Shown here is a 159-nucleotide RNA sequence from Rickettsia conorii, a member of the family "6S / SsrS RNA". The family has 150 seed sequences and 5,006 matches in Rfam 15.1. It is annotated as a non-coding RNA gene. E. coli 6S RNA was the first non coding RNA to be sequenced, but its function was unknown until recently.
RNA sequence: UAUUAGCUGCUUGGUUCGUGAGCUUAAUAUUAACCUAGGACUACCACUAACUUUUAGGACAUCGUCCCUGUCUAAUACUAAUUCAGUUUAGAUAUAUGAAGUCCACCUUUACAUAAAGGUCUUUGAAGGAUUUUAAGUAACGGCCAAAGCGGUCAUGUA
Number, nucleotide and partner (000 for none) at each position: 001u000002a000003u000004u155005a000006g153007c152008u151009g150010c149011u148012u146013g145014g144015u143016u000017c142018g141019u140020g000021a000022g000023c000024u000025u000026a000027a000028u000029a000030u000031u000032a000033a000034c129035c128036u127037a123038g122039g121040a120041c119042u118043a000044c000045c000046a000047c000048u000049a000050a000051c000052u000053u000054u000055u000056a000057g104058g103059a102060c000061a000062u099063c098064g097065u096066c000067c000068c000069u000070g093071u092072c091073u090074a089075a088076u000077a000078c086079u085080a000081a000082u000083u000084c000085a079086g078087u000088u075089u074090a073091g072092a071093u070094a000095u000096a065097u064098g063099a062100a000101g000102u059103c058104c057105a000106c000107c000108u000109u000110u000111a000112c000113a000114u000115a000116a000117a000118g042119g041120u040121c039122u038123u037124u000125g000126a000127a036128g035129g034130a000131u000132u000133u000134u000135a000136a000137g000138u000139a000140a019141c018142g017143g015144c014145c013146a012147a000148a011149g010150c009151g008152g007153u006154c000155a004156u000157g000158u000159a000